[Rfam]
RNA sequence: UGGUCAUUAUCAAGGCUUUUAGAAUGCAGUUUCUCUUUUGCUAUGGACAUGACUAUCUAUAAAAAAGAAUUCCCUCUCGGUUUUCUAUCUUCUCCCUUGUUAGCAAUCAACCUAUAAGGAACAUUU
Numbered sequence: 001u002g003g004u005c006a007u008u009a010u011c012a013a014g015g016c017u018u019u020u021a022g023a024a025u026g027c028a029g030u031u032u033c034u035c036u037u038u039u040g041c042u043a044u045g046g047a048c049a050u051g052a053c054u055a056u057c058u059a060u061a062a063a064a065a066a067g068a069a070u071u072c073c074c075u076c077u078c079g080g081u082u083u084u085c086u087a088u089c090u091u092c093u094c095c096c097u098u099g100u101u102a103g104c105a106a107u108c109a110a111c112c113u114a115u116a117a118g119g120a121a122c123a124u125u126u
Base pairs, nucleotide, nucleotide: 003053004052005051006050007049010046011045012044026041027040028039029038072119073118075116079112080111081110082109090105092103
RNA: Small nucleolar RNA SNORA32